[Rfam]
The record is a 50-nucleotide RNA sequence from Natronomonas moolapensis, which matches "eL15-Euryarchaeota ribosomal protein leader" in Rfam. Rfam classes the family as a cis-regulatory leader. Lineage of the source: Archaea > Methanobacteriota > Halobacteriales > Natronomonadaceae > Natronomonas moolapensis. The family's consensus secondary structure is taken from published work.

RNA sequence: CCUGUCUACACAGGUCGGGAUGUGACUCCGCGGCGGAGUUGAACCACACA
Numbered sequence: 001c002c003u004g005u006c007u008a009c010a011c012a013g014g015u016c017g018g019g020a021u022g023u024g025a026c027u028c029c030g031c032g033g034c035g036g037a038g039u040u041g042a043a044c045c046a047c048a049c050a
Stems, first nucleotide, its partner, number of pairs: 001014005017045002024040005